[Rfam]
RNA: Small nucleolar SNORD12/SNORD106
Organism: Candidula unifasciata
RNA sequence: UUCUUUGAUCAUGAUGACCAAUCUUUUUUCCCCAUCUGAUCGAGAAAUGAGGCCAACUAGCUUUUCUAAAGCCAUUGUUGACUGAAUCAAAGAA
Numbered sequence: 001u002u003c004u005u006u007g008a009u010c011a012u013g014a015u016g017a018c019c020a021a022u023c024u025u026u027u028u029u030c031c032c033c034a035u036c037u038g039a040u041c042g043a044g045a046a047a048u049g050a051g052g053c054c055a056a057c058u059a060g061c062u063u064u065u066c067u068a069a070a071g072c073c074a075u076u077g078u079u080g081a082c083u084g085a086a087u088c089a090a091a092g093a094a
Stems, first nucleotide, its partner, number of pairs: 001094009